The record is a 97-nucleotide sequence from Solanum tuberosum, which matches "Small nucleolar RNA Z266" in Rfam. A reference for the family is Chen et al. (2003), "The high diversity of snoRNAs in plants: identification and comparative study of 120 snoRNA genes from Oryza sativa", Nucleic Acids Res. The family's consensus secondary structure was predicted with PFOLD. Gene Ontology terms of the family: RNA processing and nucleolus. The organism belongs to Solanum, within Eukaryota. It is annotated as a C/D-box small nucleolar RNA. Rfam 15.1 lists 719 matches to the family in 213 species. A search with the family's covariance model found it, with a score of 52 bits.

RNA sequence: UAUGGCAAGAGUGAUGAAAACAAAAUUAGAUGUGUGAGAGGUGAAUUCCUCUAUGAUCUCAAUCAUCGAGGCUUAUUGAUAUUCUGACUUGCCUAUA
Numbered sequence: 001u002a003u004g005g006c007a008a009g010a011g012u013g014a015u016g017a018a019a020a021c022a023a024a025a026u027u028a029g030a031u032g033u034g035u036g037a038g039a040g041g042u043g044a045a046u047u048c049c050u051c052u053a054u055g056a057u058c059u060c061a062a063u064c065a066u067c068g069a070g071g072c073u074u075a076u077u078g079a080u081a082u083u084c085u086g087a088c089u090u091g092c093c094u095a096u097a
Base pairs, nucleotide, nucleotide: 001097002096003095004093005092006091007090008089009088